SAH (S-adenosyl-L-homocysteine) riboswitch aptamer: an 80-nucleotide RNA from Roseateles puraquae. The match comes from Rfam's covariance-model search (63 bits).
[Rfam]
RNA sequence: GCCUCCGAGGAGCGUUGCAACCUCAGCACCUUUUGAGGCCAGGCUCGGAGCGUUACCCCCUGCAACCGCGCUCACCCGCU
Numbered sequence: 001g002c003c004u005c006c007g008a009g010g011a012g013c014g015u016u017g018c019a020a021c022c023u024c025a026g027c028a029c030c031u032u033u034u035g036a037g038g039c040c041a042g043g044c045u046c047g048g049a050g051c052g053u054u055a056c057c058c059c060c061u062g063c064a065a066c067c068g069c070g071c072u073c074a075c076c077c078g079c080u
Stems, first nucleotide, its partner, number of pairs: 003050006021038006
Dot-bracket structure: ..((((((............((((((......))))))......))))))..............................

Record summary: The family has 52 seed sequences and 1,354 matches in Rfam 15.1. The organism belongs to Roseateles, within Bacteria. Pairs were carried over by alignment from the consensus structure, which is taken from published work. Rfam links the family to the GO terms regulation of gene expression and S-adenosylhomocysteine metabolic process.